RNA sequence: AGGCCCAGAGAGGGAGGCAGGGUCUGAUCCACAGCCACUGUGGCAGCUGUUGAUCAGCCGUUGCCUCUCUAUUUCUCUCCG
Numbered sequence: 001a002g003g004c005c006c007a008g009a010g011a012g013g014g015a016g017g018c019a020g021g022g023u024c025u026g027a028u029c030c031a032c033a034g035c036c037a038c039u040g041u042g043g044c045a046g047c048u049g050u051u052g053a054u055c056a057g058c059c060g061u062u063g064c065c066u067c068u069c070u071a072u073u074u075c076u077c078u079c080c081g
Base pairs, nucleotide, nucleotide: 008073009072011070012069013068014067015066016065017064018063019062020061022059024057025056026055027054028053029052032049033048034047035046